small nucleolar RNA snR35: a 171-nucleotide RNA from Rhizoctonia solani. For this family Rfam cites "Identification and functional analysis of 20 Box H/ACA small nucleolar RNAs (snoRNAs) from Schizosaccharomyces pombe" (Li et al., J Biol Chem, 2005). Pairs were carried over by alignment from the consensus structure, which was predicted with RNAalifold. Its family is annotated with nucleolus and RNA processing in the Gene Ontology.
RNA sequence: UUCGUGCGGCAGCACGGCUCUGGCAAUUUCCCCAAUGUUGCUCACCUCUGCGCCUUUCUAAUCUACGCGGUAGUUCGAGUGUCAAGCCGUGCUCUGAGCGUAUUUGGACGUCUUAGCACCCAAUUGUCGCCUUGCGUUUGCAUAGGAGACGGGUCGGUGGUUCAUACAUCC
Number, nucleotide and partner (000 for none) at each position: 001u000002u000003c000004g000005u000006g000007c000008g000009g000010c000011a000012g000013c000014a000015c000016g000017g000018c000019u000020c000021u000022g093023g092024c091025a090026a000027u000028u000029u000030c000031c000032c000033c000034a000035a000036u000037g000038u000039u000040g080041c079042u078043c077044a000045c000046c000047u000048c070049u069050g068051c067052g000053c000054c000055u000056u000057u000058c000059u000060a000061a000062u000063c000064u000065a000066c000067g051068c050069g049070g048071u000072a000073g000074u000075u000076c000077g043078a042079g041080u040081g000082u000083c000084a000085a000086g000087c000088c000089g000090u025091g024092c023093u022094c000095u000096g000097a000098g000099c000100g000101u000102a000103u000104u000105u164106g163107g162108a161109c160110g000111u000112c000113u000114u000115a000116g000117c000118a000119c000120c000121c000122a000123a000124u152125u151126g150127u149128c148129g000130c146131c145132u144133u000134g000135c000136g000137u000138u000139u000140g000141c000142a000143u000144a132145g131146g130147a000148g128149a127150c126151g125152g124153g000154u000155c000156g000157g000158u000159g000160g109161u108162u107163c106164a105165u000166a000167c000168a000169u000170c000171c000